Shown here is a 202-nucleotide RNA from Synechococcus sp. KORDI-100, a member of the family "Cyano-2 RNA". A search with the family's covariance model found it, with a score of 142 bits. Taxonomically the source falls in Synechococcus (Bacteria, Bacillati, Synechococcales, Synechococcaceae).
[Rfam]
RNA sequence: GACGGCUUCGGGAGAGCGACCCGACGGUUGGCAGAAUUCCUGUCUACUGCGUGAGCGAUCGCGGGAAACAUUAUUUUGCGACAAACAAUCAGUAGAAAUCUGGUGGGUUUGCCAAAGAUUUCCGCAAGGCAGCGAACGUAGUUAUGCAGUAAUCGCAUCGCUCGGGACGAACAUUGUUCUUCUCGCGAUUCCUGUAGCUCCC
Dot-bracket structure: ..((((.(((((.......)))))..))))(((((((...(((.(.(((((........))))).).)))..)))))))..................................................................((((..(((((.......((((.(((.....))).)))))))))..)))).......